The record is a 122-nucleotide RNA from Chiayiivirga flava, which matches "SAM riboswitch aptamer (S box leader)" in Rfam. Gene Ontology term of the family: regulation of gene expression. The match comes from Rfam's covariance-model search (78 bits). The organism belongs to Chiayiivirga, within Bacteria.
[Rfam]
Nucleotides: 122
Base pairs, nucleotide, nucleotide: 003120004119005118006117007116008115013042014041015040016039017038021031022030023029025085026084027083028082043077044076045075046074048073049072051068052067053066054065055064081114086111087110088109090107091106
Number, partner (000 for none) and nucleotide at each position: 001000a002000u003120c004119c005118c006117a007116u008115c009000a010000a011000g012000a013042c014041c015040g016039g017038c018000a019000g020000a021031g022030g023029g024000a025085c026084a027083g028082g029023c030022c031021c032000g033000a034000c035000g036000a037000a038017g039016c040015c041014g042013g043077g044076g045075c046074a047000a048073c049072c050000a051068c052067g053066a054065c055064g056000u057000u058000u059000c060000g061000c062000g063000a064055c065054g066053u067052c068051g069000c070000g071000c072049g073048g074046u075045g076044c077043c078000a079000a080000a081114u082028c083027c084026u085025g086111c087110g088109g089000c090107g091106g092000a093000u094000g095000c096000u097000u098000c099000g100000c101000g102000c103000a104000u105000c106091c107090c108000a109088c110087c111086g112000g113000a114081a115008g116007a117006u118005g119004g120003g121000u122000c